[Rfam]
RNA sequence: GGUUAGUGCAGUGAAUAAGGUAGUAAGCAAGCUGAAAGAUUUAUCUGAUCUUGCCGAUGAGUCGUCAUUGACCUAGUGUGACUCUGCCGAUAUAGAUUAGGCGCACUAACC
Numbered sequence: 001g002g003u004u005a006g007u008g009c010a011g012u013g014a015a016u017a018a019g020g021u022a023g024u025a026a027g028c029a030a031g032c033u034g035a036a037a038g039a040u041u042u043a044u045c046u047g048a049u050c051u052u053g054c055c056g057a058u059g060a061g062u063c064g065u066c067a068u069u070g071a072c073c074u075a076g077u078g079u080g081a082c083u084c085u086g087c088c089g090a091u092a093u094a095g096a097u098u099a100g101g102c103g104c105a106c107u108a109a110c111c
Stems, first nucleotide, its partner, number of pairs: 001111009019088004027054005037046003059084006066078005

A member of the RNA family "Methylophilales-1 RNA", 111 nucleotides long. Rfam classes the family as a small RNA. The family's consensus secondary structure is taken from published work.